[Rfam]
RNA sequence: CCCUGGCGACCCUGUUCUCGGAUCGUCCGGCACGUUCCUGCCGGGAUGGGAAGUUGAU
Numbered sequence: 001c002c003c004u005g006g007c008g009a010c011c012c013u014g015u016u017c018u019c020g021g022a023u024c025g026u027c028c029g030g031c032a033c034g035u036u037c038c039u040g041c042c043g044g045g046a047u048g049g050g051a052a053g054u055u056g057a058u
Stems, first nucleotide, its partner, number of pairs: 010050003014047003027044006
This 58-nucleotide RNA from Nocardia mangyaensis belongs to the Rfam family "msiK RNA". It is annotated as a cis-regulatory element. The match comes from Rfam's covariance-model search (45 bits).